[Rfam]
A member of the RNA family "Mammalian CPEB3 ribozyme" from Laticauda laticaudata, 77 nucleotides long. Rfam describes the family as follows. The mammalian CPEB3 ribozyme is a self cleaving RNA located in the second intron of the CPEB3 gene which belongs to a family of genes regulating messenger RNA polyadenylation. A search with the family's covariance model found it, with a score of 68 bits. Lineage of the source: Eukaryota > Bilateria > Tetrapoda > Colubroidea > Laticauda.

Nucleotides: 077
Stems, first nucleotide, its partner, number of pairs: 013046006021077007028040003050066004055061001
Number, partner (000 for none) and nucleotide at each position: 001000a002000u003000c004000u005000c006000a007000a008000u009000u010000a011000u012000g013046g014045g015044g016043g017042c018041c019000a020000u021077a022076g023075a024074a025073g026072g027071a028040g029039c030038g031000u032000u033000c034000a035000c036000g037000u038030c039029g040028c041018g042017g043016c044015c045014c046013c047000u048000g049000u050066c051065a052064g053063g054000u055061a056000u057000c058000u059000g060000u061055u062000u063053c064052c065051u066050g067000c068000g069000a070000a071027u072026c073025c074024u075023u076022c077021u